[Rfam]
Overview
The record is a 60-nucleotide sequence, which matches "pemK RNA" in Rfam. Rfam classes the family as a cis-regulatory element.
RNA sequence: AUAAUGGUACUCCUGCUUCGGCAGCUCCGGGCGAUCCCCGGAGGGGUGGAACUCCCGUGA
Numbered sequence: 001a002u003a004a005u006g007g008u009a010c011u012c013c014u015g016c017u018u019c020g021g022c023a024g025c026u027c028c029g030g031g032c033g034a035u036c037c038c039c040g041g042a043g044g045g046g047u048g049g050a051a052c053u054c055c056c057g058u059g060a
Stems, first nucleotide, its partner, number of pairs: 012057001013024004025043003029039003044056003